RNA: Eukaryotic small subunit ribosomal RNA, nucleotides 1632 to 1796
RNA sequence: CCGCCCGUCGCUACUACCGAUUGAAUGGCUUAGUGAGGCUUCAAGAUUGGCUUAAAGCAGGAGGCGACUCCAGCUUGGAGCCGAGAAUCUAGUCAAACUUGGUCAUUUAGAGGAAGUAAAAGUCGUAACAAGGUUUCCGUAGGUGAACCUGCGGAAGGAUCAUUU
Numbered sequence: 001c002c003g004c005c006c007g008u009c010g011c012u013a014c015u016a017c018c019g020a021u022u023g024a025a026u027g028g029c030u031u032a033g034u035g036a037g038g039c040u041u042c043a044a045g046a047u048u049g050g051c052u053u054a055a056a057g058c059a060g061g062a063g064g065c066g067a068c069u070c071c072a073g074c075u076u077g078g079a080g081c082c083g084a085g086a087a088u089c090u091a092g093u094c095a096a097a098c099u100u101g102g103u104c105a106u107u108u109a110g111a112g113g114a115a116g117u118a119a120a121a122g123u124c125g126u127a128a129c130a131a132g133g134u135u136u137c138c139g140u141a142g143g144u145g146a147a148c149c150u151g152c153g154g155a156a157g158g159a160u161c162a163u164u165u
Stems, first nucleotide, its partner, number of pairs: 001132001003129001006125002009122001012118004017113002021109001023108008032099003037094004043088001047084007055076003060071003134157010
Dot-bracket structure: (.(..((.(..((((.((..(.((((((((.(((..((((..(...(((((((.(((..(((......)))..))).)))))))...)..))))..))).)))))))))..)).))))...).))...)..).((((((((((....))))))))))........